[Rfam]
RNA sequence: ACCCUUUGGUUCCCUUUCCCAUUGGAUCUGAACACCAAUCUUGUGGUCGUAAAGGAGGAAAAGUAAUAGUGAAGCUGGCCUCACGGUGCAUAUAGUCUGUGGACUAGUUUACAACAAGG
Number, nucleotide and partner (000 for none) at each position: 001a000002c000003c058004c057005u056006u055007u054008g000009g000010u000011u000012c000013c000014c000015u000016u000017u000018c000019c046020c045021a044022u043023u000024g000025g040026a039027u038028c000029u000030g000031a000032a000033c000034a000035c000036c000037a000038a027039u026040c025041u000042u000043g022044u021045g020046g019047u000048c000049g000050u000051a000052a000053a000054g007055g006056a005057g004058g003059a000060a000061a000062a000063g000064u000065a000066a000067u000068a000069g000070u000071g000072a000073a000074g000075c107076u106077g105078g104079c000080c102081u101082c000083a000084c000085g000086g000087u000088g000089c000090a000091u000092a000093u000094a000095g000096u000097c000098u000099g000100u000101g081102g080103a000104c078105u077106a076107g075108u000109u000110u000111a000112c000113a000114a000115c000116a000117a000118g000119g000

The record is a 119-nucleotide RNA from Pipistrellus kuhlii, which matches "Small nucleolar RNA SNORA61" in Rfam. Rfam describes the family as follows. ACA61 is a member of the H/ACA class of snoRNA that guide the sites of modification of uridines to pseudouridines. Rfam classes the family as an H/ACA-box small nucleolar RNA. Pairs were carried over by alignment from the consensus structure, which was predicted with PFOLD. The organism belongs to Pipistrellus, within Eukaryota.